[Rfam]
RNA sequence: ACUGCUUUUCUUUGAUGUCCCCAUAUUGAGGAGCCCGAUAGUCAUCCACCUUGGUUAAAGACUAUCGGGUUUUUUGUU
Numbered sequence: 001a002c003u004g005c006u007u008u009u010c011u012u013u014g015a016u017g018u019c020c021c022c023a024u025a026u027u028g029a030g031g032a033g034c035c036c037g038a039u040a041g042u043c044a045u046c047c048a049c050c051u052u053g054g055u056u057a058a059a060g061a062c063u064a065u066c067g068g069g070u071u072u073u074u075u076g077u078u
Stems, first nucleotide, its partner, number of pairs: 032071012
Annotation:
RybB RNA: a 78-nucleotide RNA from Xenorhabdus szentirmaii. NCBI's taxonomy places the organism under Bacteria, Enterobacterales, Morganellaceae, Xenorhabdus, Xenorhabdus szentirmaii. The base pairs follow the family's consensus structure, which was predicted with PFOLD. Rfam describes the family as follows. This ncRNA was identified in a large scale screen of E. coli.